[Rfam]
RNA sequence: AACAACUAAUAAUUUGAUUAGUCAAAUGAGAGGGUAACGCCUUGAAGGGCUAACUAUAAUACUCCGAAUAGCACCAGUUAAGUAAAUAACAAAGUGUUAUAAGCUCGGUGAAGGCGACUGAGAGUUGUCCGUAAGUGACAUAGUCAUACGAAAAGCGAACCAGAGGUGGUCGAGACAAUGAUAGGUCGGUAGUCUUAUAU
Numbered sequence: 001a002a003c004a005a006c007u008a009a010u011a012a013u014u015u016g017a018u019u020a021g022u023c024a025a026a027u028g029a030g031a032g033g034g035u036a037a038c039g040c041c042u043u044g045a046a047g048g049g050c051u052a053a054c055u056a057u058a059a060u061a062c063u064c065c066g067a068a069u070a071g072c073a074c075c076a077g078u079u080a081a082g083u084a085a086a087u088a089a090c091a092a093a094g095u096g097u098u099a100u101a102a103g104c105u106c107g108g109u110g111a112a113g114g115c116g117a118c119u120g121a122g123a124g125u126u127g128u129c130c131g132u133a134a135g136u137g138a139c140a141u142a143g144u145c146a147u148a149c150g151a152a153a154a155g156c157g158a159a160c161c162a163g164a165g166g167u168g169g170u171c172g173a174g175a176c177a178a179u180g181a182u183a184g185g186u187c188g189g190u191a192g193u194c195u196u197a198u199a200u
Stems, first nucleotide, its partner, number of pairs: 018053006031043004054192004064108004068100007079088002115188005124179006130150003137145002156172002159170004
Background
Shown here is a 200-nucleotide RNA sequence from Candidatus Epulonipiscium fishelsonii, a member of the family "Group II catalytic intron D1-D4-5". Group II introns are found in rRNA, tRNA and mRNA of organelles in fungi, plants and protists, and also in mRNA in bacteria. It scores 155 bits against the family's covariance model.